[Rfam]
RNA sequence: GAAAUUAUUUUCGGUAUAGAACACUCAUGUCGAAAAAAAAGAUUUGAACCUUUU
Number, nucleotide and partner (000 for none) at each position: 001g000002a000003a000004a000005u000006u000007a000008u000009u000010u000011u033012c032013g031014g030015u029016a028017u027018a000019g000020a000021a000022c000023a000024c000025u000026c000027a017028u016029g015030u014031c013032g012033a011034a000035a000036a000037a000038a000039a000040a000041g000042a000043u000044u000045u000046g000047a000048a000049c000050c000051u000052u000053u000054u000
A member of the RNA family "Plastid-atpF group II-D1 intron" from Ricinus communis, 54 nucleotides long.
The family's consensus secondary structure was predicted with LocARNA.
Plastid atpF is a non-coding RNA (ncRNA) recognised in plastids. It has been reported in the intron group II-D1 region of ATP synthase (atpF) genes.
Taxonomically the source falls in Ricinus (Eukaryota, Viridiplantae, Spermatophyta, Magnoliopsida).
A reference for the family is Richter et al. (2023), "Retrograde signaling in plants: A critical review focusing on the GUN pathway and beyond", Plant Commun.